[Rfam]
RNA sequence: CUCAUGGCUCCGCAUCGCUGCCUGACCCCCGACCCGGCAGCGGUGCGGAGCCGUCUU
Number, nucleotide and partner (000 for none) at each position: 001c000002u000003c000004a054005u053006g000007g051008c050009u049010c048011c047012g046013c045014a044015u043016c042017g041018c040019u039020g038021c037022c036023u000024g000025a000026c000027c000028c000029c000030c000031g000032a000033c000034c000035c000036g022037g021038c020039a019040g018041c017042g016043g015044u014045g013046c012047g011048g010049a009050g008051c007052c000053g005054u004055c000056u000057u000
A member of the RNA family "F6 TB sRNA" from Rhodococcus sp. Leaf258, 57 nucleotides long. The source organism's lineage runs through Bacteria, Bacillati, Actinomycetota, Actinomycetes and Rhodococcus. The family's consensus secondary structure is taken from published work. A search with the family's covariance model found it, with a score of 61 bits.